About this RNA: The family of this 86-nucleotide RNA sequence from Brassica napus is "MIR828 microRNA precursor family". For this family Rfam cites "MicroRNA gene evolution in Arabidopsis lyrata and Arabidopsis thaliana" (Fahlgren et al., Plant Cell, 2010). The family has 16 seed sequences and 204 matches in Rfam 15.1. Gene Ontology terms of the family: miRNA-mediated post-transcriptional gene silencing and RISC complex.
[Rfam]
Nucleotides: 086
Stems, first nucleotide, its partner, number of pairs: 004083005010077018029058005
Number, partner (000 for none) and nucleotide at each position: 001000c002000c003000a004083a005082u006081g007080u008079u009000u010077c011076u012075u013074g014073c015072u016071u017070a018069a019068a020067u021066g022065a023064g024063u025062a026061u027060u028000c029058c030057a031056u032055g033054a034000a035000a036000g037000u038000g039000a040000u041000u042000c043000u044000c045000a046000c047000u048000c049000a050000c051000u052000c053000u054033u055032c056031a057030u058029g059000a060027g061026a062025u063024g064023c065022u066021c067020a068019u069018u070017u071016g072015a073014g074013c075012a076011a077010g078000c079008a080007a081006c082005g083004u084000u085000u086000g